Shown here is a 312-nucleotide RNA from Acidianus brierleyi, a member of the family "Archaeal RNase P". Lineage of the source: Archaea > Thermoproteota > Thermoprotei > Sulfolobales > Acidianus. A search with the family's covariance model found it, with a score of 160 bits. From the family's description: Ribonuclease P (RNase P) is a ubiquitous endoribonuclease, found in archaea, bacteria and eukarya as well as chloroplasts and mitochondria. It is annotated as a ribozyme. A reference for the family is Brown (1999), "The Ribonuclease P Database", Nucleic Acids Res.

RNA sequence: GAGAGCCACAGUAGGGGGCUACGGUGAAAACUGAGGAAACUCCAGCCUCCUGGCCUAAAGGAGUCUCUAUAGAGACAAGGGCAACACCCUUGGCAACUAUACAGAAACAAGUACCUUGAAAGCUACAUGUGAAAAUGAUUGUGCCCCUUCCUCUGGUAACGGAGGAAGAAACAUGAGAGUAGCUUUCAAGGAUGAAAAGAUAGACCUCCUAGGAGCAAGUAGAGGGAAAGAUGAGACUAGGCCCGAUUUCCCUCUAGGACGCAUAGCCAAAUCCCCCAACAUUACAGAAGCUGGGUUAUUACUGUGGCUCUC
Numbered sequence: 001g002a003g004a005g006c007c008a009c010a011g012u013a014g015g016g017g018g019c020u021a022c023g024g025u026g027a028a029a030a031c032u033g034a035g036g037a038a039a040c041u042c043c044a045g046c047c048u049c050c051u052g053g054c055c056u057a058a059a060g061g062a063g064u065c066u067c068u069a070u071a072g073a074g075a076c077a078a079g080g081g082c083a084a085c086a087c088c089c090u091u092g093g094c095a096a097c098u099a100u101a102c103a104g105a106a107a108c109a110a111g112u113a114c115c116u117u118g119a120a121a122g123c124u125a126c127a128u129g130u131g132a133a134a135a136u137g138a139u140u141g142u143g144c145c146c147c148u149u150c151c152u153c154u155g156g157u158a159a160c161g162g163a164g165g166a167a168g169a170a171a172c173a174u175g176a177g178a179g180u181a182g183c184u185u186u187c188a189a190g191g192a193u194g195a196a197a198a199g200a201u202a203g204a205c206c207u208c209c210u211a212g213g214a215g216c217a218a219g220u221a222g223a224g225g226g227a228a229a230g231a232u233g234a235g236a237c238u239a240g241g242c243c244c245g246a247u248u249u250c251c252c253u254c255u256a257g258g259a260c261g262c263a264u265a266g267c268c269a270a271a272u273c274c275c276c277c278a279a280c281a282u283u284a285c286a287g288a289a290g291c292u293g294g295g296u297u298a299u300u301a302c303u304g305u306g307g308c309u310c311u312c
Base pairs, nucleotide, nucleotide: 001312002311003310005308006307007306008305009304010303011302012278014277015276016275017274018273022033023032024031025030038297039296040295042294043293044292045291046290047215048214049213050212052243053242054241055240056239059210060209061208062207063076064075065074066073067072077091078090079089080088081087092206093205097203098202099201100200114191115190116189117188118187119186120185121184122183123182124181140173141172219260220259225251226250227249228248229247